This 121-nucleotide RNA from Palleronia aestuarii belongs to the Rfam family "Guanidine-I riboswitch aptamer".

Nucleotides: 121
Base pairs, nucleotide, nucleotide: 007067008066010064011063012062015057016056020054021053022051023048024047025046026045027044028043069093070092071091073089075087076086077085096116098119102114103113104112
Number, partner (000 for none) and nucleotide at each position: 001000g002000c003000g004000c005000a006000g007067g008066a009000a010064g011063c012062u013000u014000a015057g016056g017000g018000u019000u020054c021053c022051g023048c024047u025046c026045c027044c028043g029000c030000c031000g032000c033000c034000g035000a036000u037000g038000c039000c040000g041000c042000g043028c044027g045026g046025g047024a048023g049000g050000c051022c052000u053021g054020g055000u056016c057015c058000g059000a060000g061000a062012a063011g064010c065000g066008u067007c068000a069093c070092c071091g072000g073089c074000g075087g076086g077085g078000c079000a080000a081000a082000u083000u084000c085077c086076c087075c088000g089073g090000a091071c092070g093069g094000c095000a096116c097000a098119c099000g100000g101000c102114g103113g104112g105000c106000c107000a108000a109000a110000a111000u112104c113103c114102c115000g116096g117000g118000a119098g120000a121000g
This family represents a conserved RNA structure found upstream of the ykkC and yxkD genes in Bacillus subtilis and related genes in other bacteria.